c-di-GMP-I riboswitch aptamer: an 84-nucleotide RNA from Pyrinomonas methylaliphatogenes.
[Rfam]
RNA sequence: GGACGAUAAAGGCACACCUCGCGCGAGCGGGGGUCGCAAAGCCGACGGGAGUCAAAACGGUUUUGACUUGGCCGGGUUGCCGAA
Numbered sequence: 001g002g003a004c005g006a007u008a009a010a011g012g013c014a015c016a017c018c019u020c021g022c023g024c025g026a027g028c029g030g031g032g033g034u035c036g037c038a039a040a041g042c043c044g045a046c047g048g049g050a051g052u053c054a055a056a057a058c059g060g061u062u063u064u065g066a067c068u069u070g071g072c073c074g075g076g077u078u079g080c081c082g083a084a
Base pairs, nucleotide, nucleotide: 012037013036017032018031019030020029021028022027040078041077042076043075046074047073048072049069050068051067056063057062
Gene Ontology term of the family: cyclic-di-GMP binding.